The record is a 578-nucleotide RNA sequence, which matches "ROOL RNA" in Rfam. The base pairs follow the family's consensus structure, which is taken from published work. By type it is a small RNA. Rfam's curators write: Firmicutes, Fusobacteria (1 example), Tenericutes (1 example).

RNA sequence: AUGAAUAUUGAAAACGAUUUUUAACCAUGUGUAUGCCGUUGGUCAACGGGUCAUGGGAGCAGUUAAACCCACGAACAUAAGAGGAUACCCUUAUGUAUAGGCAGAGAGUUAGUUAUCAGUAAUGAUAAUUAAUACGACCAGAUAAGCUGGUGAAUUAAUUGCUGCGCAAGUAAUAAUCGUGAACGCAAAAGGUCUAGUCACCUGGGGUGGAACAAUAGACGGCUCUGUGAGCAAGAAUCCAAGUUAGGGUUGGGGUGGAAGCCAGUCAGUCCUUGGAAAUCCAAUAAUCCACUCUGUAGUUGAAGCCGAGAAAUUGGCUAUAACCAGGGCAGCUAGGACGAGUAGCCGAAGCUACAGCAUAUUGACUAAUAAAUGGCUCGUGAAAGAGCGAAACGAAAAGAAAAUUUGCUGAAUGACUGGUGAAAGUUGGAGGUAAAGUCCUCCUGCGGAAAAUGGCUUUUAGCUGGGGUAAGAAGUAAUAGGGUAGCUCCCUAUUAUUCAGCCUUAUCUCCCGCAUGACUGAAUAUUGGGCGUUUGUUAUUUGUAGGGCGAAGGUCCAAAAAUGUUUUCUAUAUUCG
Numbered sequence: 001a002u003g004a005a006u007a008u009u010g011a012a013a014a015c016g017a018u019u020u021u022u023a024a025c026c027a028u029g030u031g032u033a034u035g036c037c038g039u040u041g042g043u044c045a046a047c048g049g050g051u052c053a054u055g056g057g058a059g060c061a062g063u064u065a066a067a068c069c070c071a072c073g074a075a076c077a078u079a080a081g082a083g084g085a086u087a088c089c090c091u092u093a094u095g096u097a098u099a100g101g102c103a104g105a106g107a108g109u110u111a112g113u114u115a116u117c118a119g120u121a122a123u124g125a126u127a128a129u130u131a132a133u134a135c136g137a138c139c140a141g142a143u144a145a146g147c148u149g150g151u152g153a154a155u156u157a158a159u160u161g162c163u164g165c166g167c168a169a170g171u172a173a174u175a176a177u178c179g180u181g182a183a184c185g186c187a188a189a190a191g192g193u194c195u196a197g198u199c200a201c202c203u204g205g206g207g208u209g210g211a212a213c214a215a216u217a218g219a220c221g222g223c224u225c226u227g228u229g230a231g232c233a234a235g236a237a238u239c240c241a242a243g244u245u246a247g248g249g250u251u252g253g254g255g256u257g258g259a260a261g262c263c264a265g266u267c268a269g270u271c272c273u274u275g276g277a278a279a280u281c282c283a284a285u286a287a288u289c290c291a292c293u294c295u296g297u298a299g300u301u302g303a304a305g306c307c308g309a310g311a312a313a314u315u316g317g318c319u320a321u322a323a324c325c326a327g328g329g330c331a332g333c334u335a336g337g338a339c340g341a342g343u344a345g346c347c348g349a350a351g352c353u354a355c356a357g358c359a360u361a362u363u364g365a366c367u368a369a370u371a372a373a374u375g376g377c378u379c380g381u382g383a384a385a386g387a388g389c390g391a392a393a394c395g396a397a398a399a400g401a402a403a404a405u406u407u408g409c410u411g412a413a414u415g416a417c418u419g420g421u422g423a424a425a426g427u428u429g430g431a432g433g434u435a436a437a438g439u440c441c442u443c444c445u446g447c448g449g450a451a452a453a454u455g456g457c458u459u460u461u462a463g464c465u466g467g468g469g470u471a472a473g474a475a476g477u478a479a480u481a482g483g484g485u486a487g488c489u490c491c492c493u494a495u496u497a498u499u500c501a502g503c504c505u506u507a508u509c510u511c512c513c514g515c516a517u518g519a520c521u522g523a524a525u526a527u528u529g530g531g532c533g534u535u536u537g538u539u540a541u542u543u544g545u546a547g548g549g550c551g552a553a554g555g556u557c558c559a560a561a562a563a564u565g566u567u568u569u570c571u572a573u574a575u576u577c578g
Stems, first nucleotide, its partner, number of pairs: 007575002011571001013569002016566001019563004025056005036049005058163006072101001075096007083088001108133011137151005170542001173539001176536001186530001188528001191527001192521001195335004201328005206293006222232004238277006248267003253263002256283004295356005306317004339426001345421004408503004430444001432442002446515003449464001466512004472506002476499001478496007547558004